[Rfam]
RNA sequence: AGCACAAAUGAUGAGUUUAGGGACUUAAUACUGAAGUCUGAUGUGACUUAAGCAAACUGAUGUGC
Numbered sequence: 001a002g003c004a005c006a007a008a009u010g011a012u013g014a015g016u017u018u019a020g021g022g023a024c025u026u027a028a029u030a031c032u033g034a035a036g037u038c039u040g041a042u043g044u045g046a047c048u049u050a051a052g053c054a055a056a057c058u059g060a061u062g063u064g065c
Base pairs, nucleotide, nucleotide: 002065003064004063005062006061
Small nucleolar RNA SNORD82: a 65-nucleotide RNA from Pelodiscus sinensis. The family has 27 seed sequences and 649 matches in Rfam 15.1. snoRNA U82 or Z25 is found in both humans and mice. A reference for the family is Galardi et al. (2002), "Purified box C/D snoRNPs are able to reproduce site-specific 2'-O-methylation of target RNA in vitro", Mol Cell Biol. Pairs were carried over by alignment from the consensus structure, which was predicted with PFOLD. The organism belongs to Pelodiscus, within Eukaryota. By type it is a C/D-box small nucleolar RNA.